[Rfam]
RNA sequence: UCAUUCAAAAUGCCGAAUUCCGUUGAACAUGGAAACGGGGGAACCACUUUCCGGGUGAAUUGAUUUUGGGCGUCGCCAGUCAUUCUCACGCAUGCCGCAGGAAUCAUAGGGAACCUUCAACCGAACCCCACAGCUAACCUCGUAGGCUCUGGAAGGAGCAACU
Numbered sequence: 001u002c003a004u005u006c007a008a009a010a011u012g013c014c015g016a017a018u019u020c021c022g023u024u025g026a027a028c029a030u031g032g033a034a035a036c037g038g039g040g041g042a043a044c045c046a047c048u049u050u051c052c053g054g055g056u057g058a059a060u061u062g063a064u065u066u067u068g069g070g071c072g073u074c075g076c077c078a079g080u081c082a083u084u085c086u087c088a089c090g091c092a093u094g095c096c097g098c099a100g101g102a103a104u105c106a107u108a109g110g111g112a113a114c115c116u117u118c119a120a121c122c123g124a125a126c127c128c129c130a131c132a133g134c135u136a137a138c139c140u141c142g143u144a145g146g147c148u149c150u151g152g153a154a155g156g157a158g159c160a161a162c163u
Stems, first nucleotide, its partner, number of pairs: 012147003018034006035143006053128003061106007109122002
The family of this 163-nucleotide RNA from Paenibacillus sp. D9 is "c-di-AMP riboswitch aptamer (ydaO/yuaA leader)". The organism belongs to Paenibacillus, within Bacteria.